[Rfam]
RNA sequence: AGCAAAAUGAUGAGGUGAUGUAUCGGAAAUAACUGUGGGACCAUCUAUAUGUCAAAUGGUCUUCCAAGUUCUUUGGUUGCA
Numbered sequence: 001a002g003c004a005a006a007a008u009g010a011u012g013a014g015g016u017g018a019u020g021u022a023u024c025g026g027a028a029a030u031a032a033c034u035g036u037g038g039g040a041c042c043a044u045c046u047a048u049a050u051g052u053c054a055a056a057u058g059g060u061c062u063u064c065c066a067a068g069u070u071c072u073u074u075g076g077u078u079g080c081a
Stems, first nucleotide, its partner, number of pairs: 002080004
Dot-bracket structure: .((((.......................................................................)))).
A member of the RNA family "Small nucleolar RNA R160" from Papaver somniferum, 81 nucleotides long. The family has 9 seed sequences and 799 matches in Rfam 15.1. It scores 42 bits against the family's covariance model. snoR160 is a C/D box small nucleolar RNA, which acts as a methylation guide for 25S ribosomal RNA in plants. snoR160 has been alternatively named snoZ270 in rice. The literature on the family includes a 2003 paper in Nucleic Acids Res by Chen et al., "The high diversity of snoRNAs in plants: identification and comparative study of 120 snoRNA genes from Oryza sativa". The source organism's lineage runs through Eukaryota, Embryophyta, Spermatophyta, Mesangiospermae and Papaver.